[Rfam]
Nucleotides: 134
Base pairs, nucleotide, nucleotide: 024046026044028043029042030041031040032039074092075091078088079087080085097122098121099120100119101118102117103116104115
Number, partner (000 for none) and nucleotide at each position: 001000u002000c003000a004000u005000c006000a007000g008000g009000u010000a011000g012000g013000a014000a015000a016000a017000u018000c019000u020000u021000u022000a023000c024046u025000a026044g027000u028043u029042c030041c031040u032039c033000c034000u035000u036000u037000u038000a039032g040031a041030g042029g043028g044026c045000a046024g047000a048000u049000g050000g051000a052000a053000c054000a055000u056000g057000a058000u059000g060000a061000u062000u063000g064000a065000a066000g067000u068000u069000u070000g071000c072000a073000u074092g075091a076000u077000u078088u079087g080085u081000g082000a083000u084000u085080a086000g087079c088078a089000u090000c091075u092074c093000u094000g095000c096000a097122u098121a099120a100119u101118c102117a103116g104115g105000a106000c107000u108000u109000c110000a111000g112000c113000a114000c115104c116103c117102u118101g119100a120099u121098u122097g123000c124000u125000c126000c127000u128000a129000u130000u131000u132000g133000c134000u